RNA sequence: GCUGAUGCAGCUGAUGACAUAACUUUUUUCCCCGUCAGAUCGACCCUGUUGAUCUUAAACUAAUAGCCAGUUUUGUCUGAUGCAUUGGC
Number, nucleotide and partner (000 for none) at each position: 001g089002c088003u087004g086005a085006u084007g083008c082009a081010g000011c000012u000013g000014a000015u000016g000017a000018c000019a000020u000021a000022a000023c000024u000025u000026u000027u000028u000029u000030c000031c000032c000033c000034g000035u000036c000037a000038g000039a000040u000041c000042g000043a000044c000045c000046c000047u000048g000049u000050u000051g000052a000053u000054c000055u000056u000057a000058a000059a000060c000061u000062a000063a000064u000065a000066g000067c000068c000069a000070g000071u000072u000073u000074u000075g000076u000077c000078u000079g000080a000081u009082g008083c007084a006085u005086u004087g003088g002089c001